[Rfam]
RNA sequence: ACUUCCACAUGAAAUAACUGCUAAAAUUGCAGAUGCCAGGUUAGCUUGGUUUAUGCAGUAAUGCUAGCAGAGUAUUGCGUGGGUAUGAGUCGUGGUCGGACCUCUUAAUGUUCGUUGUCGUCUGUCUCGAGGCCCAGUGCAACAAUU
Numbered sequence: 001a002c003u004u005c006c007a008c009a010u011g012a013a014a015u016a017a018c019u020g021c022u023a024a025a026a027u028u029g030c031a032g033a034u035g036c037c038a039g040g041u042u043a044g045c046u047u048g049g050u051u052u053a054u055g056c057a058g059u060a061a062u063g064c065u066a067g068c069a070g071a072g073u074a075u076u077g078c079g080u081g082g083g084u085a086u087g088a089g090u091c092g093u094g095g096u097c098g099g100a101c102c103u104c105u106u107a108a109u110g111u112u113c114g115u116u117g118u119c120g121u122c123u124g125u126c127u128c129g130a131g132g133c134c135c136a137g138u139g140c141a142a143c144a145a146u147u
Base pairs, nucleotide, nucleotide: 018072019069020068021067022066023065026062027061028060029059033052035050036049037048038047039046040045076141077140078139079138080136081135082134083133095116097114098113099112100111
RNA: Small nucleolar RNA SNORA81